[Rfam]
RNA sequence: AGGGAUAUUCAACAAAUAGACACAACUCACCGUGUGUCUGAAGUGAAGAAUAUAGCUAGAAAAGGAACAGGUUGUGCUUUCCUCACUGUAUAGUUAGUUGCAGUAGUGACAAUGAGACCUGUAACAGGU
Number, nucleotide and partner (000 for none) at each position: 001a000002g056003g000004g000005a000006u052007a051008u050009u000010c000011a000012a000013c000014a000015a000016a000017u000018a039019g038020a037021c036022a035023c034024a033025a000026c000027u000028c000029a000030c000031c000032g000033u024034g023035u022036g021037u020038c019039u018040g000041a000042a000043g000044u000045g000046a000047a000048g000049a000050a008051u007052a006053u000054a000055g000056c002057u000058a000059g000060a000061a000062a000063a000064g000065g000066a000067a122068c121069a120070g119071g118072u000073u000074g000075u000076g000077c000078u000079u000080u000081c108082c000083u106084c000085a104086c103087u000088g000089u000090a000091u000092a000093g000094u000095u000096a000097g000098u000099u000100g000101c000102a000103g086104u085105a000106g083107u000108g081109a000110c000111a000112a000113u000114g000115a000116g000117a000118c071119c070120u069121g068122u067123a000124a000125c000126a000127g000128g000129u000